[Rfam]
RNA sequence: UCGCGAAGAUCCCAGCAGAGAGGUGUGUGCACUCCAUGGUUGAGGCCUCUCUAACAAAUCUUAAUCUUCGCAUAGGAAGGAACAGAGGCCGUGAAUUCGUGGAUGUGUGAUUGGUUUAUGGUUCCAUUACAUCUGUAGCCACGGAUACAUCUUU
Numbered sequence: 001u002c003g004c005g006a007a008g009a010u011c012c013c014a015g016c017a018g019a020g021a022g023g024u025g026u027g028u029g030c031a032c033u034c035c036a037u038g039g040u041u042g043a044g045g046c047c048u049c050u051c052u053a054a055c056a057a058a059u060c061u062u063a064a065u066c067u068u069c070g071c072a073u074a075g076g077a078a079g080g081a082a083c084a085g086a087g088g089c090c091g092u093g094a095a096u097u098c099g100u101g102g103a104u105g106u107g108u109g110a111u112u113g114g115u116u117u118a119u120g121g122u123u124c125c126a127u128u129a130c131a132u133c134u135g136u137a138g139c140c141a142c143g144g145a146u147a148c149a150u151c152u153u154u
Base pairs, nucleotide, nucleotide: 003071004070005069006068007067008066009065011020013018025051027049032044033043034042036040083144085142087140088139095132099127100126101125102124103123
RNA: Small nucleolar RNA snoR145
Organism: Oryza meridionalis